msiK RNA: a 58-nucleotide sequence from Agromyces atrinae. Pairs were carried over by alignment from the consensus structure, which is taken from published work. The organism belongs to Agromyces, within Bacteria. It scores 65 bits against the family's covariance model. The family's RNA type in Rfam is cis-regulatory element.
RNA sequence: CCGUGUUUCCAUUCACUACGGAUCGUCCGGCACGUACCUGCCGGUGAAGGAGAAAGAA
Numbered sequence: 001c002c003g004u005g006u007u008u009c010c011a012u013u014c015a016c017u018a019c020g021g022a023u024c025g026u027c028c029g030g031c032a033c034g035u036a037c038c039u040g041c042c043g044g045u046g047a048a049g050g051a052g053a054a055a056g057a058a
Stems, first nucleotide, its partner, number of pairs: 009050002012048004027044006